mir-150 microRNA precursor family: an 80-nucleotide RNA from Vombatus ursinus.

[Rfam]
RNA sequence: GCCCGGAGCCCCUUCUCCCAACCCUCGUACCAGAGUCCAUCAGAGACCCGGUACGGGCUGUGGGGGAUGGGGAGCAGGGC
Numbered sequence: 001g002c003c004c005g006g007a008g009c010c011c012c013u014u015c016u017c018c019c020a021a022c023c024c025u026c027g028u029a030c031c032a033g034a035g036u037c038c039a040u041c042a043g044a045g046a047c048c049c050g051g052u053a054c055g056g057g058c059u060g061u062g063g064g065g066g067a068u069g070g071g072g073a074g075c076a077g078g079g080c
Stems, first nucleotide, its partner, number of pairs: 010071003014067002016064003022057002026055006